[Rfam]
RNA sequence: UGGCCGAACAGGGACCUGGAAGCGAGAGACUCCGUGAAAGGAGGCGUAAGGCCAGUGGGCAGCUAGCAGACAAAAGAUGAAGCUCUUCCGACCACCUUGGGAACCUGCAGCGUCUGGUCCGAAAGGUAAGUGAAUGCGUCGAGAAAUGGGACAAGAAUUAAAUGGCAUCAGAUCUAUGUAGGACAAUUAAAAGAGGCUUUAAAGAUACGGGAAGUAAAGGUUAAAGGUAAUGAUUUGUUUAAGUUUUUGAUUUUGUAAAAGACGCGCCUUG
Dot-bracket structure: ....((................)).....((.(.......).)).....................................(((.((...((...(.(.(.......).).)...).)...)).))).......((..((.(....).)).)).....(((.(................................)..)))......((((.(((..((((((.......))))))......))))))).........(((......))).

Shown here is a 271-nucleotide sequence from Papio anubis, a member of the family "Mason-Pfizer monkey virus packaging signal". Rfam classes the family as a cis-regulatory element. A search with the family's covariance model found it, with a score of 141 bits. The organism belongs to Papio, within Eukaryota. On this family, see Mustafa et al., Virus Res 2004: "Mutational analysis of the predicted secondary RNA structure of the Mason-Pfizer monkey virus packaging signal". The base pairs follow the family's consensus structure, which was predicted with PFOLD.